[Rfam]
Nucleotides: 095
Stems, first nucleotide, its partner, number of pairs: 012037002017032006040089004046085002048081003055075006
Number, partner (000 for none) and nucleotide at each position: 001000a002000u003000u004000u005000a006000a007000u008000c009000a010000g011000g012037g013036c014000a015000a016000a017032u018031u019030c020029a021028c022027u023000g024000a025000a026000a027022a028021g029020u030019g031018a032017a033000g034000a035000c036013g037012c038000a039000a040089a041088g042087c043086c044000a045000u046085g047084g048081g049080u050079c051000u052000a053000a054000g055075g056074c057073a058072u059071g060070a061000c062000a063000a064000g065000c066000a067000g068000g069000a070060u071059c072058g073057u074056g075055c076000u077000a078000a079050g080049g081048c082000a083000g084047c085046c086043g087042g088041u089040u090000g091000c092000c093000g094000a095000u